[Rfam]
RNA sequence: AACAAAGAAAACUGUAAGUCGCUCUGAAUAAGAGCGUCUGCUAAAUUACUAAAA
Numbered sequence: 001a002a003c004a005a006a007g008a009a010a011a012c013u014g015u016a017a018g019u020c021g022c023u024c025u026g027a028a029u030a031a032g033a034g035c036g037u038c039u040g041c042u043a044a045a046u047u048a049c050u051a052a053a054a
Base pairs, nucleotide, nucleotide: 013043014041015040016039020036021035022034023033024032025031
UnaL2 LINE 3' element: a 54-nucleotide RNA from Coregonus sp. 'balchen'. The family's RNA type in Rfam is cis-regulatory element. The source organism's lineage runs through Eukaryota, Eumetazoa, Euteleostomi, Salmoniformes and Coregonus. The match comes from Rfam's covariance-model search (62 bits).